[Rfam]
Source information
A member of the RNA family "Bacterial large subunit ribosomal RNA" from Bifidobacterium reuteri, 587 nucleotides of a longer RNA.
RNA sequence: AGCGCAGAAGGACGAAAAGACCCCGGGACCUUUACUAUACCUUGGUAUUGGCAUUCGGUGUGGAUUGUGUAGCAUAGGCGGGAGACCGUGAGGCGUGGUCGCCAGACCACGCGGAGUCGCAAGGUGAAAUACCGCUCUGUUCGCAUUGGAUGUCUCACCACGACACGUGAUCCGUGUCUGGGACAGUGCCUGGCGGGUAGUUUAACUGGGGCGGUUGCCUCCCAAAGAGUAACGGAGGCGCCCAAAGGUCACCUCAGCCCGGUUGGCAAUCGGGUGGCGAGUGCAAGUGCACAAGGUGGCUUGACUGCGAGACUGACGGGUCGAGCAGGGACGAAAGUCGGGACUAGUGAUCCGGUGCCGGUGUACGGACGCGGCAUCGCUCAACGGAUAAAAGGUACCCCGGGGAUAACAGGCUGAUCAUUCCCAAGAGUCCAUAUCGACGGGAUGGUUUGGCACCUCGAUGUCGGCUCGUCGCAUCCUGGGGCUGGAGCAGGUCCCAAGGGUUCGGCUGUUCGCCGAUUAAAGCGGCACGCGAGCUGGGUUCAGAACGUCGUGAGACAGUUUGGUCUCUAUCCUCUGCGCUCGUU
Numbered sequence: 001a002g003c004g005c006a007g008a009a010g011g012a013c014g015a016a017a018a019g020a021c022c023c024c025g026g027g028a029c030c031u032u033u034a035c036u037a038u039a040c041c042u043u044g045g046u047a048u049u050g051g052c053a054u055u056c057g058g059u060g061u062g063g064a065u066u067g068u069g070u071a072g073c074a075u076a077g078g079c080g081g082g083a084g085a086c087c088g089u090g091a092g093g094c095g096u097g098g099u100c101g102c103c104a105g106a107c108c109a110c111g112c113g114g115a116g117u118c119g120c121a122a123g124g125u126g127a128a129a130u131a132c133c134g135c136u137c138u139g140u141u142c143g144c145a146u147u148g149g150a151u152g153u154c155u156c157a158c159c160a161c162g163a164c165a166c167g168u169g170a171u172c173c174g175u176g177u178c179u180g181g182g183a184c185a186g187u188g189c190c191u192g193g194c195g196g197g198u199a200g201u202u203u204a205a206c207u208g209g210g211g212c213g214g215u216u217g218c219c220u221c222c223c224a225a226a227g228a229g230u231a232a233c234g235g236a237g238g239c240g241c242c243c244a245a246a247g248g249u250c251a252c253c254u255c256a257g258c259c260c261g262g263u264u265g266g267c268a269a270u271c272g273g274g275u276g277g278c279g280a281g282u283g284c285a286a287g288u289g290c291a292c293a294a295g296g297u298g299g300c301u302u303g304a305c306u307g308c309g310a311g312a313c314u315g316a317c318g319g320g321u322c323g324a325g326c327a328g329g330g331a332c333g334a335a336a337g338u339c340g341g342g343a344c345u346a347g348u349g350a351u352c353c354g355g356u357g358c359c360g361g362u363g364u365a366c367g368g369a370c371g372c373g374g375c376a377u378c379g380c381u382c383a384a385c386g387g388a389u390a391a392a393a394g395g396u397a398c399c400c401c402g403g404g405g406a407u408a409a410c411a412g413g414c415u416g417a418u419c420a421u422u423c424c425c426a427a428g429a430g431u432c433c434a435u436a437u438c439g440a441c442g443g444g445a446u447g448g449u450u451u452g453g454c455a456c457c458u459c460g461a462u463g464u465c466g467g468c469u470c471g472u473c474g475c476a477u478c479c480u481g482g483g484g485c486u487g488g489a490g491c492a493g494g495u496c497c498c499a500a501g502g503g504u505u506c507g508g509c510u511g512u513u514c515g516c517c518g519a520u521u522a523a524a525g526c527g528g529c530a531c532g533c534g535a536g537c538u539g540g541g542u543u544c545a546g547a548a549c550g551u552c553g554u555g556a557g558a559c560a561g562u563u564u565g566g567u568c569u570c571u572a573u574c575c576u577c578u579g580c581g582c583u584c585g586u587u
Base pairs, nucleotide, nucleotide: 001583002582003581004580005579006578007577008576010575011574012573014570015569022404023403024402025401026400027399028396029395030394031393032392034201035200036199037198041193042192044190045189046188047187050154051153052152053151054150055149056148057147058146059145060144061143062142063141064140065139067137077136078135079134080133081132084118085117086116093112094111095110096109097108098107099106100105158181159180160179162178163177164176165175166174167173204216205215206214207213217239218238219237220236221235222234240385242342243341248300249299250298251297252296253295254280255279257275258274259273260272261271262270281290282289305328306327307326308325311322312321313320330339331338332337353379354378355377356376357375358374359373361372362371413454414453415452417451418448419447420446421445422444423443424442428438429437465540466538467537468536469535470532471529472528473527474526475525478503479502481498482497483496484495485494486493505519506518507517508516509515546564547563548562549561550559551558552557
Rfam links the family to the GO terms ribosome and structural constituent of ribosome.
NCBI's taxonomy places the organism under Bacteria, Actinomycetota, Actinomycetes, Bifidobacterium, Bifidobacterium reuteri.